[Rfam]
RNA sequence: GCAUCAGUAAUGAUGUGGAUGAAGGAAGCGCAUAGCAAAGUUCACGAGCCUACGAACAGAAACUUGAUAAGGCGAUAAGGUGGGUAAGGUUGCACGUCAAACCAAAGCCCGAAAGGUAAACGUAUAACCGAAGUUGUAAAUCAAGAGGUUGUGGAACGAAAGAUUAGUGC
Numbered sequence: 001g002c003a004u005c006a007g008u009a010a011u012g013a014u015g016u017g018g019a020u021g022a023a024g025g026a027a028g029c030g031c032a033u034a035g036c037a038a039a040g041u042u043c044a045c046g047a048g049c050c051u052a053c054g055a056a057c058a059g060a061a062a063c064u065u066g067a068u069a070a071g072g073c074g075a076u077a078a079g080g081u082g083g084g085u086a087a088g089g090u091u092g093c094a095c096g097u098c099a100a101a102c103c104a105a106a107g108c109c110c111g112a113a114a115g116g117u118a119a120a121c122g123u124a125u126a127a128c129c130g131a132a133g134u135u136g137u138a139a140a141u142c143a144a145g146a147g148g149u150u151g152u153g154g155a156a157c158g159a160a161a162g163a164u165u166a167g168u169g170c
Base pairs, nucleotide, nucleotide: 001016002015003014004013005012006011028170029169030168031167036162040157041156042155043154045153046152047150048149049148050147051146063145064144065143066142067141072137073136074135076132079129080128081127082110083109084108085107088103089102090101091100
Rfam assigns this 170-nucleotide RNA from Clostridium sp. D5 to the family "Group II catalytic intron D1-D4-3". The match comes from Rfam's covariance-model search (114 bits). Rfam links the family to the GO term Group II intron splicing.